[Rfam]
RNA sequence: UCCGCCGCAGUGCAUAAUGGGAAGCGGAGCGGCUAACGAGGCCGUCGGCCAUUUUGUGUCUGUUUCCUGUGGGACGCGGUGGUU
Dot-bracket structure: .(((((((.((...(.((((((((((((((((....(((.....)))......)))).)))))))))))).).)))))))))..
Numbered sequence: 001u002c003c004g005c006c007g008c009a010g011u012g013c014a015u016a017a018u019g020g021g022a023a024g025c026g027g028a029g030c031g032g033c034u035a036a037c038g039a040g041g042c043c044g045u046c047g048g049c050c051a052u053u054u055u056g057u058g059u060c061u062g063u064u065u066c067c068u069g070u071g072g073g074a075c076g077c078g079g080u081g082g083u084u
Stems, first nucleotide, its partner, number of pairs: 002082007010075002015072001017070012029057004037047003

mir-632 microRNA precursor family: an 84-nucleotide sequence from Trichechus manatus. The family's consensus secondary structure was predicted with RNAalifold. For this family Rfam cites "Genome-wide comparative analysis of microRNAs in three non-human primates" (Brameier, BMC Res Notes, 2010). The match comes from Rfam's covariance-model search (82 bits).